[Rfam]
RNA: Glycine riboswitch aptamer
RNA sequence: AUGAAAAUAACGAGAGAUAUUCUUACUGGAAUAGCCGAAGAAGCAAUAUAGAAGAUGCCAUUCUUCCAUAGAAUCUUUCAGGCAAAAGGAUCGUUAUUGGAUG
Numbered sequence: 001a002u003g004a005a006a007a008u009a010a011c012g013a014g015a016g017a018u019a020u021u022c023u024u025a026c027u028g029g030a031a032u033a034g035c036c037g038a039a040g041a042a043g044c045a046a047u048a049u050a051g052a053a054g055a056u057g058c059c060a061u062u063c064u065u066c067c068a069u070a071g072a073a074u075c076u077u078u079c080a081g082g083c084a085a086a087a088g089g090a091u092c093g094u095u096a097u098u099g100g101a102u103g
Stems, first nucleotide, its partner, number of pairs: 006098008019032004034083003037079002041077003047070002